Description
A member of the RNA family "Mason-Pfizer monkey virus packaging signal" from Sciurus vulgaris, 291 nucleotides long.
RNA sequence: UGGCGCCCAACGGUGUGGCUUUGGAUACGGGGGAAUUCGCGAGGGAAGUGGCGUGUAAGUGUUCAGCGGAAGAAGAAGAAAAAAAAAAAGUGAAAGUCAGUUCAACAAAGUUCGCCACAGGAGCCUGCCGGCCGUUCUUAAAGGUACAGUAGCACCUAAGUAUGGGUCAAGAAUUAAGUAAGCAUAAAGUUUUUGUUAAGCAAUUAAAAGAAGCUUUAAAGACACGGAGAGUAAAGGUUAAGAGUAAUGAUCAUUUUAAGUUUUUUGACCUUAUUAAGGACACCUGUCCGU
Numbered sequence: 001u002g003g004c005g006c007c008c009a010a011c012g013g014u015g016u017g018g019c020u021u022u023g024g025a026u027a028c029g030g031g032g033g034a035a036u037u038c039g040c041g042a043g044g045g046a047a048g049u050g051g052c053g054u055g056u057a058a059g060u061g062u063u064c065a066g067c068g069g070a071a072g073a074a075g076a077a078g079a080a081a082a083a084a085a086a087a088a089a090g091u092g093a094a095a096g097u098c099a100g101u102u103c104a105a106c107a108a109a110g111u112u113c114g115c116c117a118c119a120g121g122a123g124c125c126u127g128c129c130g131g132c133c134g135u136u137c138u139u140a141a142a143g144g145u146a147c148a149g150u151a152g153c154a155c156c157u158a159a160g161u162a163u164g165g166g167u168c169a170a171g172a173a174u175u176a177a178g179u180a181a182g183c184a185u186a187a188a189g190u191u192u193u194u195g196u197u198a199a200g201c202a203a204u205u206a207a208a209a210g211a212a213g214c215u216u217u218a219a220a221g222a223c224a225c226g227g228a229g230a231g232u233a234a235a236g237g238u239u240a241a242g243a244g245u246a247a248u249g250a251u252c253a254u255u256u257u258a259a260g261u262u263u264u265u266u267g268a269c270c271u272u273a274u275u276a277a278g279g280a281c282a283c284c285u286g287u288c289c290g291u
Stems, first nucleotide, its partner, number of pairs: 006033003013028003038050003097144002101141002113134001116131001118130001120128001150170001152168001155166004175218003178214002225267008236252005276291001278289004
This family represents a group of sequences that are related to the Mason-Pfizer monkey virus (MPMV) packaging signal.
Taxonomically the source falls in Sciurus (Eukaryota, Deuterostomia, Chordata, Teleostomi).